Rfam assigns this 66-nucleotide RNA from Brenthis ino to the family "mir-2 microRNA precursor family". The source organism's lineage runs through Eukaryota, Hexapoda, Amphiesmenoptera, Argynnini and Brenthis. The match comes from Rfam's covariance-model search (54 bits). The family's consensus secondary structure was predicted with PFOLD.

RNA sequence: UAGCCUCUCAAAGCGGCAGUGAAAUGUCUUUUCGUCCUCAUAUCACAGCCACUUUGAUGUGGUCGG
Numbered sequence: 001u002a003g004c005c006u007c008u009c010a011a012a013g014c015g016g017c018a019g020u021g022a023a024a025u026g027u028c029u030u031u032u033c034g035u036c037c038u039c040a041u042a043u044c045a046c047a048g049c050c051a052c053u054u055u056g057a058u059g060u061g062g063u064c065g066g
Stems, first nucleotide, its partner, number of pairs: 006059001008057006015050003019046004025042003